[Rfam]
Description
PyrR binding site: a 121-nucleotide sequence from Vagococcus zengguangii. The organism belongs to Vagococcus, within Bacteria. It scores 58 bits against the family's covariance model.

RNA sequence: GAGCUUUUUAAUUAUGUCCUGUGAGACAUAGAAGAGCGUUGUAGUUAAAGAUAGGGAUGAGACUAUCUUUAUUUAGGCGAACUUCUUGUGUCUUAGGAUAGGGCACAGGAAGUUUUUUUUA
Numbered sequence: 001g002a003g004c005u006u007u008u009u010a011a012u013u014a015u016g017u018c019c020u021g022u023g024a025g026a027c028a029u030a031g032a033a034g035a036g037c038g039u040u041g042u043a044g045u046u047a048a049a050g051a052u053a054g055g056g057a058u059g060a061g062a063c064u065a066u067c068u069u070u071a072u073u074u075a076g077g078c079g080a081a082c083u084u085c086u087u088g089u090g091u092c093u094u095a096g097g098a099u100a101g102g103g104c105a106c107a108g109g110a111a112g113u114u115u116u117u118u119u120u121a
Stems, first nucleotide, its partner, number of pairs: 003037007013030006042075003046071009079115016